About this RNA
The family of this 127-nucleotide RNA from Kutzneria sp. 744 is "Actinobacteria sRNA Ms_IGR-7". The literature on the family includes a 2013 paper in RNA by Li et al., "Identification of small RNAs in Mycobacterium smegmatis using heterologous Hfq". Taxonomically the source falls in Kutzneria (Bacteria, Bacillati, Actinomycetota, Actinomycetes). A search with the family's covariance model found it, with a score of 55 bits.

RNA sequence: CGGAGAUGCCCUCUCGGUCGGGAUGGAUCGUUCCUUCAGCAAGACCGAUUAUCCUCACCCGGAGGGCAUUUCCCUGUUCACGCCACACCUCGCGGCCCGAGAUCACCAAGAUCACCGGUGGAUCGAG
Dot-bracket structure: .((((((((((((.(((..(((...(((.(.((.........)).).)))...)))..))))))))))))))).................................(.(..(((....))).).)..